[Rfam]
RNA sequence: AUCCCCUGGGGAUUUUGCUAAAAAUGCAGGUUCUGACUCAGUAGGUCUGAGAGUCUGCAUUUCUAGCAAGCUCCCAGGUGAUAUUUA
Numbered sequence: 001a002u003c004c005c006c007u008g009g010g011g012a013u014u015u016u017g018c019u020a021a022a023a024a025u026g027c028a029g030g031u032u033c034u035g036a037c038u039c040a041g042u043a044g045g046u047c048u049g050a051g052a053g054u055c056u057g058c059a060u061u062u063c064u065a066g067c068a069a070g071c072u073c074c075c076a077g078g079u080g081a082u083a084u085u086u087a
Base pairs, nucleotide, nucleotide: 003080005078009074010073011072014070015069016068017067018066019065020064022062023061024060026058027057028056029055030054032052033051034050

The record is an 87-nucleotide RNA from Lipotes vexillifer, which matches "mir-544 microRNA precursor family" in Rfam.
The match comes from Rfam's covariance-model search (68 bits).